[Rfam]
RNA sequence: ACAAUUUCCUGACAAAGAGAGAGAGCACGCUAGUUGACAUUUCAUGCAUAGGACAUGACUGUUUACAAGCGUGCUCUCUAUCAUUGUCAUGGAUUU
Numbered sequence: 001a002c003a004a005u006u007u008c009c010u011g012a013c014a015a016a017g018a019g020a021g022a023g024a025g026c027a028c029g030c031u032a033g034u035u036g037a038c039a040u041u042u043c044a045u046g047c048a049u050a051g052g053a054c055a056u057g058a059c060u061g062u063u064u065a066c067a068a069g070c071g072u073g074c075u076c077u078c079u080a081u082c083a084u085u086g087u088c089a090u091g092g093a094u095u096u
Stems, first nucleotide, its partner, number of pairs: 010089005017082001020079002023076001025074007033066002
RNA: MIR535 microRNA precursor family
Organism: Rhododendron williamsianum